[Rfam]
A member of the RNA family "S16-Flavobacteria ribosomal protein leader" from Myroides phaeus, 35 nucleotides long. By type it is a cis-regulatory leader. A search with the family's covariance model found it, with a score of 36 bits.

RNA sequence: UUUAAAACCGAGGUCGGGUACCUCAAUUAAUUAAA
Numbered sequence: 001u002u003u004a005a006a007a008c009c010g011a012g013g014u015c016g017g018g019u020a021c022c023u024c025a026a027u028u029a030a031u032u033a034a035a
Base pairs, nucleotide, nucleotide: 001035002034003033004032005031010024011023012022013021014020